[Rfam]
RNA: Xanthine riboswitch aptamer (NMT1 RNA)
Organism: Hydrogenophaga sp. PBC
RNA sequence: GGCAGGAGUAGAAGCGUUCAGCGGGUCGCCCCACGCACCCGCCCGGAAAUUGCUCUGUAG
Numbered sequence: 001g002g003c004a005g006g007a008g009u010a011g012a013a014g015c016g017u018u019c020a021g022c023g024g025g026u027c028g029c030c031c032c033a034c035g036c037a038c039c040c041g042c043c044c045g046g047a048a049a050u051u052g053c054u055c056u057g058u059a060g
Stems, first nucleotide, its partner, number of pairs: 005056006015045001018047002021042006